[Rfam]
RNA sequence: CCGUGCUAGACGGGGAGGUAGCGGUGCCCUGUACUCGCAAUCCGCUCCAGCGAGGUUGAAUUCCUUCUCGAGGUUCGUAUGCUGUAGGGUCUGCCUUAAGUAAGUGGUGUUGAAGCCUGGGUCCUGCGCAAUGAGAAUCCAUGAACCAUGUCAGAUCCGGAAGGAAGCAGCAUUAAGUGGAAACUCUCAUGUGCCGCAGGGCUGCCUGGGCAGAGCUAACUGCUUAAGUAACGCUUAUGGCUGCAAAUCGACAGAAGGUGCACGG
Numbered sequence: 001c002c003g004u005g006c007u008a009g010a011c012g013g014g015g016a017g018g019u020a021g022c023g024g025u026g027c028c029c030u031g032u033a034c035u036c037g038c039a040a041u042c043c044g045c046u047c048c049a050g051c052g053a054g055g056u057u058g059a060a061u062u063c064c065u066u067c068u069c070g071a072g073g074u075u076c077g078u079a080u081g082c083u084g085u086a087g088g089g090u091c092u093g094c095c096u097u098a099a100g101u102a103a104g105u106g107g108u109g110u111u112g113a114a115g116c117c118u119g120g121g122u123c124c125u126g127c128g129c130a131a132u133g134a135g136a137a138u139c140c141a142u143g144a145a146c147c148a149u150g151u152c153a154g155a156u157c158c159g160g161a162a163g164g165a166a167g168c169a170g171c172a173u174u175a176a177g178u179g180g181a182a183a184c185u186c187u188c189a190u191g192u193g194c195c196g197c198a199g200g201g202c203u204g205c206c207u208g209g210g211c212a213g214a215g216c217u218a219a220c221u222g223c224u225u226a227a228g229u230a231a232c233g234c235u236u237a238u239g240g241c242u243g244c245a246a247a248u249c250g251a252c253a254g255a256a257g258g259u260g261c262a263c264g265g
Stems, first nucleotide, its partner, number of pairs: 001265006009057003012030004017025001019023001034054005063258006072249004081241008092230002096227006104220002106217003115211008123200006129191002132189005138181005148173004156165003
This 265-nucleotide RNA sequence from Peribacillus psychrosaccharolyticus belongs to the Rfam family "Bacterial large signal recognition particle RNA". The literature on the family includes a 2003 paper in Nucleic Acids Res by Rosenblad et al., "SRPDB: Signal Recognition Particle Database". The source organism's lineage runs through Bacteria, Bacillati, Bacillota, Caryophanales and Peribacillus. Its Rfam clan is "SRP clan". It scores 241 bits against the family's covariance model. Rfam's curators write: The signal recognition particle (SRP) is a universally conserved ribonucleoprotein involved in the co-translational targeting of proteins to membranes.